A member of the RNA family "6S / SsrS RNA" from Alteromonadales bacterium alter-6D02, 180 nucleotides long. It scores 113 bits against the family's covariance model. From the family's description: E. coli 6S RNA was the first non coding RNA to be sequenced, but its function was unknown until recently. Pairs were carried over by alignment from the consensus structure, which is taken from published work. It is annotated as a non-coding RNA gene.
RNA sequence: UACUUCCUGGGGUGUUCGUGAGUGUUCUGUGUUCCCGAGCCAAUAUACAUACCAAGGGUGUUAAUUCCUUUACUAUUGCGCAAGCCCGGCAUGCACCGGGAAGCCUGCGGUAAUAAUUAACUCCCGCCUUGAACCGUCUGGUUCGAGGGCCAAUGUUCACAGCGGCACUUUGGGAAUAUU
Numbered sequence: 001u002a003c004u005u006c007c008u009g010g011g012g013u014g015u016u017c018g019u020g021a022g023u024g025u026u027c028u029g030u031g032u033u034c035c036c037g038a039g040c041c042a043a044u045a046u047a048c049a050u051a052c053c054a055a056g057g058g059u060g061u062u063a064a065u066u067c068c069u070u071u072a073c074u075a076u077u078g079c080g081c082a083a084g085c086c087c088g089g090c091a092u093g094c095a096c097c098g099g100g101a102a103g104c105c106u107g108c109g110g111u112a113a114u115a116a117u118u119a120a121c122u123c124c125c126g127c128c129u130u131g132a133a134c135c136g137u138c139u140g141g142u143u144c145g146a147g148g149g150c151c152a153a154u155g156u157u158c159a160c161a162g163c164g165g166c167a168c169u170u171u172g173g174g175a176a177u178a179u180u
Base pairs, nucleotide, nucleotide: 004176005175006174007173008172009171010170011169012168013167014166015165017164018163019162031150032149033148034147036145037144038143039142040141041140056125057124058123060121061120062119063118064117065116070113071112072111073110074109080104081103085100086099087098088097089096